[Rfam]
RNA sequence: AUUCUUCCUCCUGUAUUGCCGAUGCUUCGGCAACAGCCAGCAGCCAGGGUCUUUCAGGCUGCGCCGUGGGUUUUCCACGCUGACCAACCUUGUCCGCAUCGCACCGCGCCGCGGACACGCGCCCACCCCCGGCGUUGGUGC
Numbered sequence: 001a002u003u004c005u006u007c008c009u010c011c012u013g014u015a016u017u018g019c020c021g022a023u024g025c026u027u028c029g030g031c032a033a034c035a036g037c038c039a040g041c042a043g044c045c046a047g048g049g050u051c052u053u054u055c056a057g058g059c060u061g062c063g064c065c066g067u068g069g070g071u072u073u074u075c076c077a078c079g080c081u082g083a084c085c086a087a088c089c090u091u092g093u094c095c096g097c098a099u100c101g102c103a104c105c106g107c108g109c110c111g112c113g114g115a116c117a118c119g120c121g122c123c124c125a126c127c128c129c130c131g132g133c134g135u136u137g138g139u140g141c
Base pairs, nucleotide, nucleotide: 011036012035013034018031019030020029021028022027040062041061042060043059044058045057048085049084050083051082063081065079066078067077068076069075111141112140113139119135120134121133122132123131